[Rfam]
The record is a 129-nucleotide sequence from Oryctolagus cuniculus, which matches "Small nucleolar RNA SNORA27" in Rfam. It scores 136 bits against the family's covariance model. About the family: ACA27 is a member of the H/ACA class of snoRNA that guide the sites of modification of uridines to pseudouridines. The family is grouped with related families in Rfam's "SNORA27 clan". The pairing is the family consensus, mapped onto this sequence. The source organism's lineage runs through Eukaryota, Tetrapoda, Boreoeutheria, Leporidae and Oryctolagus.
RNA sequence: UACCCCAUUCUCACUUUGCCAAUUGGACUUUUAUGUCUUUAUUGGUCAUUUAAGUGGGGCAAAGGAACUAUCCUGUUAAAGCUCAGGCAAAUUGAAUGUUUGUCUUGUAACCUGUCAGAGGAAACAAAU
Numbered sequence: 001u002a003c004c005c006c007a008u009u010c011u012c013a014c015u016u017u018g019c020c021a022a023u024u025g026g027a028c029u030u031u032u033a034u035g036u037c038u039u040u041a042u043u044g045g046u047c048a049u050u051u052a053a054g055u056g057g058g059g060c061a062a063a064g065g066a067a068c069u070a071u072c073c074u075g076u077u078a079a080a081g082c083u084c085a086g087g088c089a090a091a092u093u094g095a096a097u098g099u100u101u102g103u104c105u106u107g108u109a110a111c112c113u114g115u116c117a118g119a120g121g122a123a124a125c126a127a128a129u
Stems, first nucleotide, its partner, number of pairs: 034061005042053004071122004076117001084107001085105008